Nucleotides: 256
Base pairs, nucleotide, nucleotide: 001230002229003228004227005226007224008223009222011220013201014200015199016198017197019158020157021156024153025152026151028148030146035055036054037053039052040051041050042049043048065127066126067125068124069123070122071121079092103119104118106116168179169178203219204218205217206216235256236255237254238253239252240251241250242249
Number, partner (000 for none) and nucleotide at each position: 001230u002229a003228a004227g005226u006000a007224c008223a009222u010000a011220g012000a013201u014200g015199g016198c017197u018000g019158g020157c021156a022000u023000u024153g025152g026151g027000c028148g029000g030146u031000c032000a033000g034000c035055u036054a037053u038000u039052c040051u041050c042049c043048c044000g045000g046000a047000g048043g049042g050041g051040a052039g053037g054036u055035g056000a057000g058000a059000g060000g061000u062000c063000a064000u065127g066126g067125a068124g069123g070122u071121a072000c073000a074000u075000c076000a077000a078000g079092c080000u081000u082000u083000g084000a085000c086000g087000c088000u089000g090000a091000u092079g093000a094000u095000u096000u097000c098000a099000u100000u101000u102000g103119c104118g105000a106116c107000a108000c109000u110000g111000g112000u113000u114000g115000u116106g117000a118104u119103g120000g121071u122070a123069c124068u125067u126066u127065c128000u129000u130000u131000c132000g133000a134000u135000a136000a137000a138000a139000a140000g141000a142000a143000g144000u145000a146030g147000a148028c149000c150000g151026c152025c153024c154000u155000c156021u157020g158019c159000a160000a161000a162000g163000g164000u165000a166000u167000g168179c169178g170000g171000u172000c173000u174000a175000c176000u177000g178169u179168g180000g181000a182000u183000c184000g185000u186000u187000a188000c189000c190000g191000u192000g193000u194000a195000a196000a197017a198016g199015c200014c201013a202000a203219c204218c205217g206216c207000c208000c209000u210000u211000a212000g213000c214000a215000a216206g217205c218204g219203g220011c221000u222009g223008u224007g225000u226005a227004c228003u229002u230001g231000g232000g233000g234000u235256c236255g237254u238253g239252g240251a241250u242249g243000c244000u245000g246000c247000a248000a249242c250241a251240u252239c253238c254237g255236c256235g
The record is a 256-nucleotide RNA sequence from Paenibacillus sambharensis, which matches "BsrG" in Rfam.
Its family is annotated with toxin activity and autolysis in the Gene Ontology.
Rfam describes the family as follows. bsrE, bsrG and bsrH pair through intermolecular interactions with antisense sRNAs. They form type I toxin/antitoxin system that includes an mRNA encoding for a short, toxic peptide (bsrE, bsrG and bsrH) and an antitoxin that is comprised of an antisense RNA. bsrG encodes a 39-amino-acid toxin, and the 180 nucleotide antisense sRNA called SR4 acts as the antitoxin (they overlap by 123 nucleotides). SR4 interaction with the 3'UTR of bsrG RNA promotes bsrG degradation and inhibits its translation. BsrG interferes with cell envelope biosynthesis, causes membrane invaginations and delocalisation of the cell wall synthesis and initiates autolysis. bsrE RNA encodes 30 amino-acid toxin peptide.
Rfam classes the family as a small RNA.